[Rfam]
RNA sequence: CCAUGGUGUUGGACUUGGCUCUAUUGUGAGCAGUGGGUUGCCAAAAUGAUGUUCACAGUGGCUAAGUUCCACACCUGGA
Numbered sequence: 001c002c003a004u005g006g007u008g009u010u011g012g013a014c015u016u017g018g019c020u021c022u023a024u025u026g027u028g029a030g031c032a033g034u035g036g037g038u039u040g041c042c043a044a045a046a047u048g049a050u051g052u053u054c055a056c057a058g059u060g061g062c063u064a065a066g067u068u069c070c071a072c073a074c075c076u077g078g079a
Stems, first nucleotide, its partner, number of pairs: 011069010026056007
This 79-nucleotide RNA from Eptatretus burgeri belongs to the Rfam family "mir-27 microRNA precursor family". It scores 62 bits against the family's covariance model. A reference for the family is Chen et al. (2005), "The developmental miRNA profiles of zebrafish as determined by small RNA cloning", Genes Dev. Its family is annotated with miRNA-mediated post-transcriptional gene silencing and RISC complex in the Gene Ontology.